[Rfam]
The record is a 114-nucleotide sequence from Dinothrombium tinctorium, which matches "Potassium channel RNA editing signal" in Rfam. The organism belongs to Dinothrombium, within Eukaryota. A search with the family's covariance model found it, with a score of 94 bits. A reference for the family is Bhalla et al. (2004), "Control of human potassium channel inactivation by editing of a small mRNA hairpin", Nat Struct Mol Biol. This family represents a group of sequences related to the human potassium channel Kv1.1 hairpin element which directs the efficient modification of an adenosine to inosine by an adenosine deaminase acting on RNA (ADAR).
Nucleotides: 114
Base pairs, nucleotide, nucleotide: 001114002113005110007108008107009106010105011104014101015100016099018097020095037077038076039075040074049063050062051061
Number, partner (000 for none) and nucleotide at each position: 001114g002113u003000u004000g005110g006000c007108u008107a009106c010105g011104g012000u013000g014101a015100c016099a017000u018097g019000c020095g021000a022000c023000c024000a025000a026000u027000c028000g029000g030000u031000g032000u033000g034000u035000g036000g037077g038076g039075u040074a041000a042000a043000a044000u045000u046000g047000u048000g049063g050062g051061u052000u053000c054000a055000u056000u057000g058000u059000g060000u061051g062050c063049c064000a065000u066000u067000g068000c069000c070000g071000g072000u073000g074040u075039a076038u077037u078000g079000a080000c081000g082000a083000u084000c085000g086000c087000a088000u089000u090000a091000c092000c093000c094000g095020u096000u097018c098000c099016u100015g101014u102000g103000a104011u105010u106009g107008u108007a109000u110005c111000g112000a113002a114001c